[Rfam]
RNA sequence: AUCGCUUCUCGGCCUUUUGGCUAAGAUCAAGUGUAGUAUCUGUUCUUAUCAGUUUAAGAUCUGAUAUGUCCUCUAUCUGAGGACAACAUAUUAAACGUAUUUUUGGAAAUAGGAGUUGGACCAGGAGCUUGCUCCAUCCACUCCACGCAUCAGCCUGGUAUUGCAGUAUUUCCAGGAAUGGUGCAGCCCCU
Numbered sequence: 001a002u003c004g005c006u007u008c009u010c011g012g013c014c015u016u017u018u019g020g021c022u023a024a025g026a027u028c029a030a031g032u033g034u035a036g037u038a039u040c041u042g043u044u045c046u047u048a049u050c051a052g053u054u055u056a057a058g059a060u061c062u063g064a065u066a067u068g069u070c071c072u073c074u075a076u077c078u079g080a081g082g083a084c085a086a087c088a089u090a091u092u093a094a095a096c097g098u099a100u101u102u103u104u105g106g107a108a109a110u111a112g113g114a115g116u117u118g119g120a121c122c123a124g125g126a127g128c129u130u131g132c133u134c135c136a137u138c139c140a141c142u143c144c145a146c147g148c149a150u151c152a153g154c155c156u157g158g159u160a161u162u163g164c165a166g167u168a169u170u171u172c173c174a175g176g177a178a179u180g181g182u183g184c185a186g187c188c189c190c191u
Base pairs, nucleotide, nucleotide: 007026008025009024011022012021013020014019047066048065049064050063051062052061068084069083070082071081072080073079112144113143114142115141116140118138119137124135125134126133127132147184148183149182150181151180152179154176155175156174157173158172
RNA: U2 spliceosomal RNA